[Rfam]
Rfam assigns this 103-nucleotide RNA sequence from Castanea mollissima to the family "Small nucleolar RNA snoR97".
Gene Ontology terms of the family: nucleolus and RNA processing.
The organism belongs to Castanea, within Eukaryota.
It is annotated as an H/ACA-box small nucleolar RNA.
The family has 7 seed sequences and 862 matches in Rfam 15.1.
Nucleotides: 103
Stems, first nucleotide, its partner, number of pairs: 043095005053084006060076004
Number, partner (000 for none) and nucleotide at each position: 001000a002000a003000u004000c005000u006000g007000u008000u009000g010000u011000g012000g013000g014000a015000a016000u017000a018000g019000a020000g021000g022000c023000c024000a025000u026000a027000a028000a029000a030000c031000u032000c033000a034000g035000g036000c037000a038000u039000u040000g041000u042000u043095u044094g045093u046092u047091g048000u049000c050000a051000a052000c053084g054083g055082c056081u057080u058079c059000u060076u061075c062074u063073c064000c065000a066000c067000a068000u069000u070000c071000a072000c073063g074062a075061g076060a077000u078000u079058g080057g081056a082055g083054u084053u085000a086000a087000a088000u089000a090000a091047c092046a093045g094044c095043a096000c097000u098000a099000c100000a101000u102000u103000c